[Rfam]
Rhizobiales-2 RNA: a 97-nucleotide sequence from Nitrobacter hamburgensis. The sequence is in the family's curated seed alignment.
RNA sequence: GGGAGCCAAAACUCCCCAAAGCUAUAUCAGGCGCGAGCGCCCAUCCACCCCAGCGCCCAUAUGGCUUGACCCGCCCGGUUGUCCCCCCGGGCGGGUC
Numbered sequence: 001g002g003g004a005g006c007c008a009a010a011a012c013u014c015c016c017c018a019a020a021g022c023u024a025u026a027u028c029a030g031g032c033g034c035g036a037g038c039g040c041c042c043a044u045c046c047a048c049c050c051c052a053g054c055g056c057c058c059a060u061a062u063g064g065c066u067u068g069a070c071c072c073g074c075c076c077g078g079u080u081g082u083c084c085c086c087c088c089g090g091g092c093g094g095g096u097c
Stems, first nucleotide, its partner, number of pairs: 001016005019067009030057005068097011